[Rfam]
RNA sequence: AUGGUCUCAAGACCACUCCGGUUUCUCCGCGCCAUUUACCACCAACUGACGCCUGCUCGUUGCAGCGCGUGAACG
Dot-bracket structure: .(((((....)))))....(((.(....).))).............(.((((..............)))).)...
A member of the RNA family "Xanthomonas sRNA sX9" from Glaciimonas immobilis, 75 nucleotides long. NCBI's taxonomy places the organism under Bacteria, Pseudomonadati, Betaproteobacteria, Oxalobacteraceae, Glaciimonas. The literature on the family includes a 2011 paper in Nucleic Acids Res by Schmidtke et al., "Genome-wide transcriptome analysis of the plant pathogen Xanthomonas identifies sRNAs with putative virulence functions". It is annotated as a small RNA. The family has 16 seed sequences and 309 matches in Rfam 15.1. The family's consensus secondary structure was predicted with RNAalifold. A search with the family's covariance model found it, with a score of 46 bits.